[Rfam]
Rfam assigns this 129-nucleotide RNA from Cavia porcellus to the family "Small nucleolar RNA SNORA1". NCBI's taxonomy places the organism under Eukaryota, Mammalia, Euarchontoglires, Caviidae, Cavia. Gene Ontology terms of the family: nucleolus and RNA processing. Rfam classes the family as an H/ACA-box small nucleolar RNA. From the family's description: ACA1 is a member of the H/ACA class of snoRNA that guide the sites of modification of uridines to pseudouridines.

RNA sequence: AGCCUCAUUCUAGGUUAGGGCACUGUUGAUUGGUGUCCAAAAUUGGUCAGCGUGGCUAAAACUGAGACCCAGGUUAUGCUUCCAUCACAGUAAGUGUUUAUAGUGGUGAUAAUGACACCUGUAACAUUU
Numbered sequence: 001a002g003c004c005u006c007a008u009u010c011u012a013g014g015u016u017a018g019g020g021c022a023c024u025g026u027u028g029a030u031u032g033g034u035g036u037c038c039a040a041a042a043u044u045g046g047u048c049a050g051c052g053u054g055g056c057u058a059a060a061a062c063u064g065a066g067a068c069c070c071a072g073g074u075u076a077u078g079c080u081u082c083c084a085u086c087a088c089a090g091u092a093a094g095u096g097u098u099u100a101u102a103g104u105g106g107u108g109a110u111a112a113u114g115a116c117a118c119c120u121g122u123a124a125c126a127u128u129u
Base pairs, nucleotide, nucleotide: 002056003055004054006052008050018038019037020036021035022034023033070121071120072119073118083108084107085106086105087104088103